[Rfam]
RNA sequence: ACUCGUCUGAGCGAGUAUAAACAGGUCAUUAAGCUCAGAGCGUUCACCGGGAUCAUGCGGUGAGGUUGGC
Numbered sequence: 001a002c003u004c005g006u007c008u009g010a011g012c013g014a015g016u017a018u019a020a021a022c023a024g025g026u027c028a029u030u031a032a033g034c035u036c037a038g039a040g041c042g043u044u045c046a047c048c049g050g051g052a053u054c055a056u057g058c059g060g061u062g063a064g065g066u067u068g069g070c
Base pairs, nucleotide, nucleotide: 001016002015003014004013006039007038008037009036010035011034025070026069027068028067033041043064044063045062046061047060048059049058
Rfam assigns this 70-nucleotide sequence from Paenibacillus polymyxa to the family "Pistol ribozyme". It is one of the family's seed sequences. For this family Rfam cites "New classes of self-cleaving ribozymes revealed by comparative genomics analysis" (Weinberg et al., Nat Chem Biol, 2015).